Record summary
Eukaryotic small subunit ribosomal RNA: a 72-nucleotide part of an RNA from Jaera nordmanni. Lineage of the source: Eukaryota > Opisthokonta > Metazoa > Ecdysozoa > Jaera. Rfam links the family to the GO terms structural constituent of ribosome and ribosome.
[Rfam]
RNA sequence: GCCAACUAGCGAUCCGUCGGUGUCAUAUCCACGACUCGACGGGAAGCCCCUGGGAAACCUAAGUUUUUGGGU
Number, nucleotide and partner (000 for none) at each position: 001g072002c071003c070004a065005a064006c063007u000008a000009g047010c046011g000012a000013u043014c042015c041016g040017u039018c038019g037020g036021u000022g035023u034024c033025a000026u000027a000028u000029c000030c000031a000032c000033g024034a023035c022036u020037c019038g018039a017040c016041g015042g014043g013044a000045a000046g010047c009048c000049c000050c000051u000052g059053g058054g000055a000056a000057a000058c053059c052060u000061a000062a000063g006064u005065u004066u000067u000068u000069g000070g003071g002072u001